[Rfam]
RNA sequence: CACAUCAGCGCGCUUUGCUGACGUGGCAACAAAUCACGUCCUCGAGAAGGCGAUUUUUGCCACGUCAGCAAAUUGCGCUGACGUAG
Number, nucleotide and partner (000 for none) at each position: 001c000002a084003c083004a000005u081006c080007a079008g078009c077010g076011c075012g074013c000014u072015u071016u070017g069018c068019u067020g066021a065022c000023g063024u062025g061026g060027c059028a058029a057030c000031a056032a055033a054034u053035c052036a000037c050038g000039u000040c000041c046042u000043c000044g000045a000046g041047a000048a000049g000050g037051c000052g035053a034054u033055u032056u031057u029058u028059g027060c026061c025062a024063c023064g000065u021066c020067a019068g018069c017070a016071a015072a014073u000074u012075g011076c010077g009078c008079u007080g006081a005082c000083g003084u002085a000086g000
A member of the RNA family "MIR7486 microRNA precursor family" from Gossypium klotzschianum, 86 nucleotides long. The base pairs follow the family's consensus structure, which was predicted with RNAalifold. The match comes from Rfam's covariance-model search (69 bits).